The record is a 90-nucleotide RNA from Denitratisoma oestradiolicum, which matches "c-di-GMP-I-GGC riboswitch aptamer" in Rfam.
The family has 40 seed sequences and 1,298 matches in Rfam 15.1.
It scores 69 bits against the family's covariance model.
Taxonomically the source falls in Denitratisoma (Bacteria, Pseudomonadati, Pseudomonadota, Nitrosomonadales).
RNA sequence: ACUGAAAAAGGCAAACCCAUCGAAAGGUGGGGACGCAAAGUCACCGGUCUAAAGGGUGGGCACCACUCCAGGAUAGCGGGACCGCCAGGC
Numbered sequence: 001a002c003u004g005a006a007a008a009a010g011g012c013a014a015a016c017c018c019a020u021c022g023a024a025a026g027g028u029g030g031g032g033a034c035g036c037a038a039a040g041u042c043a044c045c046g047g048u049c050u051a052a053a054g055g056g057u058g059g060g061c062a063c064c065a066c067u068c069c070a071g072g073a074u075a076g077c078g079g080g081a082c083c084g085c086c087a088g089g090c
Base pairs, nucleotide, nucleotide: 003087004086011036012035016031017030018029019028020027021026034076040082041081042080044079045078046077047074048073049072